[Rfam]
RNA sequence: GGCUUCAACAACCCCGUAGGUCGGGUCCGCAAAGACAGUGGAUCUACUGGAGCC
Numbered sequence: 001g002g003c004u005u006c007a008a009c010a011a012c013c014c015c016g017u018a019g020g021u022c023g024g025g026u027c028c029g030c031a032a033a034g035a036c037a038g039u040g041g042a043u044c045u046a047c048u049g050g051a052g053c054c
Stems, first nucleotide, its partner, number of pairs: 001054007013040001014038001016047007023039001025036003

Source information: Shown here is a 54-nucleotide RNA, a member of the family "nadA riboswitch". The family's RNA type in Rfam is small RNA.